Record summary: Rfam assigns this 46-nucleotide RNA sequence from Xenopus laevis to the family "Histone 3' UTR stem-loop". Rfam classes the family as a cis-regulatory element. The mRNAs of metazoan histone genes lack a poly-A tail. 3' end processing occurs at a site between a highly conserved stem-loop (modelled by this family) and a purine rich region around 20 nts downstream (the histone downstream element, or HDE). NCBI's taxonomy places the organism under Eukaryota, Metazoa, Chordata, Craniata, Xenopus.
RNA sequence: CCAAAGGCUCUUUUCAGAGCCACCCACCCACUCAUAUUAAGAGUUG
Number, nucleotide and partner (000 for none) at each position: 001c000002c000003a000004a000005a000006g021007g020008c019009u018010c017011u016012u000013u000014u000015c000016a011017g010018a009019g008020c007021c006022a000023c000024c000025c000026a000027c000028c000029c000030a000031c000032u000033c000034a000035u000036a000037u000038u000039a000040a000041g000042a000043g000044u000045u000046g000